[Rfam]
RNA sequence: UUUUCCCUGCGGUGUGCGUGAAGGCAUACAAUUCCUUUGAACCAAUAAGUUCGCUUAAGGUUGCCGGGAGCAGUAGUGGGCGCGAUUGUCUGUUUACAGACGAACCCGAAACUACCCGAGGCGACCGCCUUGUCAGCAAGGUUCAAGCGGAUUACGCCCGAGCGGCAUCAGCGGGGAUUCC
Numbered sequence: 001u002u003u004u005c006c007c008u009g010c011g012g013u014g015u016g017c018g019u020g021a022a023g024g025c026a027u028a029c030a031a032u033u034c035c036u037u038u039g040a041a042c043c044a045a046u047a048a049g050u051u052c053g054c055u056u057a058a059g060g061u062u063g064c065c066g067g068g069a070g071c072a073g074u075a076g077u078g079g080g081c082g083c084g085a086u087u088g089u090c091u092g093u094u095u096a097c098a099g100a101c102g103a104a105c106c107c108g109a110a111a112c113u114a115c116c117c118g119a120g121g122c123g124a125c126c127g128c129c130u131u132g133u134c135a136g137c138a139a140g141g142u143u144c145a146a147g148c149g150g151a152u153u154a155c156g157c158c159c160g161a162g163c164g165g166c167a168u169c170a171g172c173g174g175g176g177a178u179u180c181c
Stems, first nucleotide, its partner, number of pairs: 004177007012168004017164003033151003036147001038145006059126003063122003068117001070116001073115003078106002083102002086099004
RNA: 6S / SsrS RNA